eL15-Euryarchaeota ribosomal protein leader: a 74-nucleotide sequence. Rfam classes the family as a cis-regulatory leader. On this family, see Eckert and Weinberg, BMC Microbiol 2020: "Discovery of 20 novel ribosomal leader candidates in bacteria and archaea". Pairs were carried over by alignment from the consensus structure, which is taken from published work.
RNA sequence: CUCGCCGCCGGACGGGCGCGACACGCUCGCUCGGGACGAGACGACAUGUGGCCGGGGACCGGCCGAAUCGCAAG
Numbered sequence: 001c002u003c004g005c006c007g008c009c010g011g012a013c014g015g016g017c018g019c020g021a022c023a024c025g026c027u028c029g030c031u032c033g034g035g036a037c038g039a040g041a042c043g044a045c046a047u048g049u050g051g052c053c054g055g056g057g058a059c060c061g062g063c064c065g066a067a068u069c070g071c072a073a074g
Stems, first nucleotide, its partner, number of pairs: 001040004042070003050064005